[Rfam]
RNA sequence: CGACUCUGGAAAGCCGGCCCCCACGGGCCGCACCGACGGUGCAACGUCCACUCCGACGAGGGAGCGGGCGGAAUCUCUCAGGUCCGAUACAGAGCGGGGAGG
Numbered sequence: 001c002g003a004c005u006c007u008g009g010a011a012a013g014c015c016g017g018c019c020c021c022c023a024c025g026g027g028c029c030g031c032a033c034c035g036a037c038g039g040u041g042c043a044a045c046g047u048c049c050a051c052u053c054c055g056a057c058g059a060g061g062g063a064g065c066g067g068g069c070g071g072a073a074u075c076u077c078u079c080a081g082g083u084c085c086g087a088u089a090c091a092g093a094g095c096g097g098g099g100a101g102g
Stems, first nucleotide, its partner, number of pairs: 001097001004094005015030004032083003035079002039077001041075001045070005
RNA: Glycine riboswitch aptamer